The record is a 72-nucleotide RNA sequence from Capitella teleta, which matches "mir-12 microRNA precursor family" in Rfam. Pairs were carried over by alignment from the consensus structure, which was predicted with RNAalifold.
RNA sequence: CAGAGCCUGAGUAUUACAUCAGGUACUGAGUACAAGCACGAAAUCAGGGCCUGCUGAAAUACUCGCUCUCUG
Numbered sequence: 001c002a003g004a005g006c007c008u009g010a011g012u013a014u015u016a017c018a019u020c021a022g023g024u025a026c027u028g029a030g031u032a033c034a035a036g037c038a039c040g041a042a043a044u045c046a047g048g049g050c051c052u053g054c055u056g057a058a059a060u061a062c063u064c065g066c067u068c069u070c071u072g
Stems, first nucleotide, its partner, number of pairs: 001072005010063004017056002019053001022051003026047004